[Rfam]
RNA sequence: GAAUCUUCUUUUACAGUGUUAUAAAAGAUUU
Numbered sequence: 001g002a003a004u005c006u007u008c009u010u011u012u013a014c015a016g017u018g019u020u021a022u023a024a025a026a027g028a029u030u031u
Base pairs, nucleotide, nucleotide: 001031002030003029004028005027006026007025009024010023012021013020014018

Iron response element II: a 31-nucleotide sequence from Sinocyclocheilus anshuiensis.
The literature on the family includes a 2006 paper in J Biol Chem by Sanchez et al., "Iron regulation and the cell cycle: identification of an iron-responsive element in the 3'-untranslated region of human cell division cycle 14A mRNA by a refined microarray-based screening strategy".
It is annotated as a cis-regulatory element.
From the family's description: IRE, TFRC, SLC40A1, SDHB, SLC11A2, CDC42BPA, ACO2, ALAS2_H.SAPIENS, CDC14A, EPAS1, ALAS2, qoxD, Hao1, NDUFS1, transferrin, Aconitate.
Rfam 15.1 lists 5,197 matches to the family in 722 species.